The family of this 97-nucleotide sequence from Methylobacterium durans is "Repression of heat shock gene expression (ROSE) element". Rfam 15.1 lists 381 matches to the family in 262 species. A search with the family's covariance model found it, with a score of 52 bits. Rfam classes the family as an RNA thermoregulator. For this family Rfam cites "A mRNA-based thermosensor controls expression of rhizobial heat shock genes" (Nocker et al., Nucleic Acids Res, 2001). The family's consensus secondary structure is taken from published work. From the family's description: This family represents a 5' UTR cis-regulatory element found in heat shock mRNAs and is known as the ROSE (repression of heat shock gene expression) element. The ROSE element is a negative regulator of heat shock gene expression. The secondary structure is thought to be regulated by temperature.
RNA sequence: GCGAGGCCCGAAAUGGGCUCGCCAGUUGGGCGCCGGCCACUCGGUGUCCGGCGUCCCUUGUGGUCACGUUGCUCACUGGAGGAUGUGGUUAUGAGGA
Numbered sequence: 001g002c003g004a005g006g007c008c009c010g011a012a013a014u015g016g017g018c019u020c021g022c023c024a025g026u027u028g029g030g031c032g033c034c035g036g037c038c039a040c041u042c043g044g045u046g047u048c049c050g051g052c053g054u055c056c057c058u059u060g061u062g063g064u065c066a067c068g069u070u071g072c073u074c075a076c077u078g079g080a081g082g083a084u085g086u087g088g089u090u091a092u093g094a095g096g097a
Stems, first nucleotide, its partner, number of pairs: 001022005007016002029055008038046001057095006064088007072081003